[Rfam]
RNA sequence: CGGCAGUGGAGUUCAGAACCCACUUCAAAAACGGGGCGUUGCCGAAAAGCCUUACGAGUAGGAACUGU
Number, nucleotide and partner (000 for none) at each position: 001c000002g000003g000004c000005a000006g023007u022008g021009g020010a000011g000012u000013u000014c000015a000016g000017a000018a000019c000020c009021c008022a007023c006024u000025u000026c000027a000028a000029a000030a000031a000032c000033g000034g000035g051036g050037c049038g000039u000040u000041g000042c062043c061044g000045a000046a000047a000048a000049g037050c036051c035052u000053u000054a000055c000056g000057a000058g000059u000060a000061g043062g042063a000064a000065c000066u000067g000068u000
RNA: DUF805 RNA